A member of the RNA family "Glycine riboswitch aptamer" from Tistrella mobilis, 126 nucleotides long. The match comes from Rfam's covariance-model search (32 bits). Taxonomically the source falls in Tistrella mobilis (Bacteria, Pseudomonadati, Pseudomonadota, Geminicoccaceae).

[Rfam]
RNA sequence: UCACUCUGGAAAGCAGGCGGCGCGGAAGAUCGCGGCGUCUCACCGAAGGGGUAAGUGCGACGACGGCCCACCGCAUCCGCGGGGGCAUGGCGGCGCACAAUCUUUCAGGUCCGAAGACAGAGCGGG
Numbered sequence: 001u002c003a004c005u006c007u008g009g010a011a012a013g014c015a016g017g018c019g020g021c022g023c024g025g026a027a028g029a030u031c032g033c034g035g036c037g038u039c040u041c042a043c044c045g046a047a048g049g050g051g052u053a054a055g056u057g058c059g060a061c062g063a064c065g066g067c068c069c070a071c072c073g074c075a076u077c078c079g080c081g082g083g084g085g086c087a088u089g090g091c092g093g094c095g096c097a098c099a100a101u102c103u104u105u106c107a108g109g110u111c112c113g114a115a116g117a118c119a120g121a122g123c124g125g126g
Stems, first nucleotide, its partner, number of pairs: 001125002004122005015040004042110003045106002049104003055098005